[Rfam]
RNA sequence: CCUGUGAAACUCGAAUGAACGAACGGAGAGAUUCAUCGUCGUCUGCGCCGCACGGCCGCGUCUCGAUGUCCUGGUCUCGGCUGGUGGCAACAAGUCGCUCCUGGAGGCGCUGUGCAGACGGCGUGCACUUCUCUCUUAGUAAAUACAUCGCGACCCGUUCGAUGCCGGUCUAAGUGCUGUUCGGAAGUAGUCGCCUCGCCACUCCUUCACGGGAGUGGGAGACCGUAUCGGUAACGGACUGGCUGUCGGACGGUAGCCAAGGAAUCGUGCACGCGCUAAGACGCGUCCGGCCCGACGCAAGCCGCGCCCUGCUCUAUGAUACGCCGGAGUGCGGACGUAGGCGCGGCGCUGCUGUUCUCGCUGCCGUGUCGUCUCGGACUGUGCACGGCUCUGUCUGCGAUCAUUCAGUUUCGGGCACUCACAGGACCCGUCUUGAAACACGG
Numbered sequence: 001c002c003u004g005u006g007a008a009a010c011u012c013g014a015a016u017g018a019a020c021g022a023a024c025g026g027a028g029a030g031a032u033u034c035a036u037c038g039u040c041g042u043c044u045g046c047g048c049c050g051c052a053c054g055g056c057c058g059c060g061u062c063u064c065g066a067u068g069u070c071c072u073g074g075u076c077u078c079g080g081c082u083g084g085u086g087g088c089a090a091c092a093a094g095u096c097g098c099u100c101c102u103g104g105a106g107g108c109g110c111u112g113u114g115c116a117g118a119c120g121g122c123g124u125g126c127a128c129u130u131c132u133c134u135c136u137u138a139g140u141a142a143a144u145a146c147a148u149c150g151c152g153a154c155c156c157g158u159u160c161g162a163u164g165c166c167g168g169u170c171u172a173a174g175u176g177c178u179g180u181u182c183g184g185a186a187g188u189a190g191u192c193g194c195c196u197c198g199c200c201a202c203u204c205c206u207u208c209a210c211g212g213g214a215g216u217g218g219g220a221g222a223c224c225g226u227a228u229c230g231g232u233a234a235c236g237g238a239c240u241g242g243c244u245g246u247c248g249g250a251c252g253g254u255a256g257c258c259a260a261g262g263a264a265u266c267g268u269g270c271a272c273g274c275g276c277u278a279a280g281a282c283g284c285g286u287c288c289g290g291c292c293c294g295a296c297g298c299a300a301g302c303c304g305c306g307c308c309c310u311g312c313u314c315u316a317u318g319a320u321a322c323g324c325c326g327g328a329g330u331g332c333g334g335a336c337g338u339a340g341g342c343g344c345g346g347c348g349c350u351g352c353u354g355u356u357c358u359c360g361c362u363g364c365c366g367u368g369u370c371g372u373c374u375c376g377g378a379c380u381g382u383g384c385a386c387g388g389c390u391c392u393g394u395c396u397g398c399g400a401u402c403a404u405u406c407a408g409u410u411u412c413g414g415g416c417a418c419u420c421a422c423a424g425g426a427c428c429c430g431u432c433u434u435g436a437a438a439c440a441c442g443g
Base pairs, nucleotide, nucleotide: 001425002424003423004422005421006420007419428443429442430441431440